The family of this 57-nucleotide RNA sequence from Rhodococcus xishaensis is "msiK RNA".

RNA sequence: GCUCGUACACCCUGACUCGGAUCGUCCGGCACGUUCCUGCCGGUGAAGGGACCGCUC
Numbered sequence: 001g002c003u004c005g006u007a008c009a010c011c012c013u014g015a016c017u018c019g020g021a022u023c024g025u026c027c028g029g030c031a032c033g034u035u036c037c038u039g040c041c042g043g044u045g046a047a048g049g050g051a052c053c054g055c056u057c
Base pairs, nucleotide, nucleotide: 010049011048013046015044026043027042028041029040030039031038
By type it is a cis-regulatory element. NCBI's taxonomy places the organism under Bacteria, Actinomycetota, Mycobacteriales, Nocardiaceae, Rhodococcus. A search with the family's covariance model found it, with a score of 40 bits.